[Rfam]
RNA sequence: AGGGAUAGAGGACGGAAAUGGCAUCCGUCGCCAUGUUAGAGAUGUGGGCAGGUCACCCCACCUAUCCCU
Numbered sequence: 001a002g003g004g005a006u007a008g009a010g011g012a013c014g015g016a017a018a019u020g021g022c023a024u025c026c027g028u029c030g031c032c033a034u035g036u037u038a039g040a041g042a043u044g045u046g047g048g049c050a051g052g053u054c055a056c057c058c059c060a061c062c063u064a065u066c067c068c069u
Stems, first nucleotide, its partner, number of pairs: 001069008011029005019055004031039001044061005
RNA: skipping-rope RNA
Organism: Eubacteriaceae bacterium CHKCI005